[Rfam]
RNA sequence: CAACCCGAACCGAGAGGUUCGGCUGAACCGGCAGGAGUCAGCAGAGGGCAUAGUACUCCGGGGAUCAUGAACCUGAGAGGAAGGCC
Dot-bracket structure: ((..(((((((....))))))).))............((....)).(((......(((.(((.........)))..)))....)))
Shown here is an 86-nucleotide sequence from Kyrpidia spormannii, a member of the family "Group II catalytic intron D1-D4-1". It scores 71 bits against the family's covariance model. NCBI's taxonomy places the organism under Bacteria, Bacillota, Bacilli, Caryophanales, Kyrpidia.